[Rfam]
Description: The family of this 141-nucleotide RNA sequence from Kribbella turkmenica is "SAM riboswitch aptamer (S box leader)". The SAM riboswitch is found upstream of a number of genes which code for proteins involved in methionine or cysteine biosynthesis in Gram-positive bacteria. It scores 68 bits against the family's covariance model. The family is grouped with related families in Rfam's "SAM clan". Rfam links the family to the GO term regulation of gene expression.

RNA sequence: AGCUCAUCCAGAGGGACUGAGGGAAACGGCCCGUUGAAGUCCCGGCAACCCUCCCCGUUGCGGUUCCAGUCCGGGAUCCUCGCGGCGGAACGGUGCCAAAUCCGUCCCGCGCCGAGAUCCGGUGUCCGGGGAAGAUGAGAG
Numbered sequence: 001a002g003c004u005c006a007u008c009c010a011g012a013g014g015g016a017c018u019g020a021g022g023g024a025a026a027c028g029g030c031c032c033g034u035u036g037a038a039g040u041c042c043c044g045g046c047a048a049c050c051c052u053c054c055c056c057g058u059u060g061c062g063g064u065u066c067c068a069g070u071c072c073g074g075g076a077u078c079c080u081c082g083c084g085g086c087g088g089a090a091c092g093g094u095g096c097c098a099a100a101u102c103c104g105u106c107c108c109g110c111g112c113c114g115a116g117a118u119c120c121g122g123u124g125u126c127c128g129g130g131g132a133a134g135a136u137g138a139g140a141g
Stems, first nucleotide, its partner, number of pairs: 003139006013043005021032003026105004044097004049093002052089003101133001106130004